[Rfam]
Nucleotides: 155
Base pairs, nucleotide, nucleotide: 001022002021003020004019006018007017008016033049034048035047036046056135057134058133082094083093102117103116104115105114106113
Number, partner (000 for none) and nucleotide at each position: 001022u002021c003020c004019c005000u006018g007017c008016u009000u010000u011000c012000c013000a014000u015000c016008a017007g018006c019004g020003g021002g022001g023000u024000u025000a026000c027000u028000g029000a030000a031000g032000a033049g034048g035047c036046a037000c038000a039000c040000c041000u042000u043000c044000a045000u046036u047035g048034c049033c050000g051000g052000a053000a054000g055000u056135g057134c058133g059000g060000u061000a062000g063000g064000g065000a066000a067000c068000a069000c070000c071000c072000u073000c074000c075000a076000a077000u078000c079000c080000a081000u082094g083093g084000c085000a086000g087000a088000c089000a090000a091000a092000g093083c094082c095000g096000a097000g098000u099000c100000c101000a102117u103116g104115u105114c106113g107000c108000g109000u110000a111000u112000g113106c114105g115104g116103c117102g118000u119000c120000g121000a122000u123000u124000c125000a126000a127000c128000a129000u130000u131000c132000g133058c134057g135056c136000a137000u138000c139000g140000a141000g142000c143000g144000c145000u146000u147000g148000c149000u150000a151000u152000g153000g154000u155000u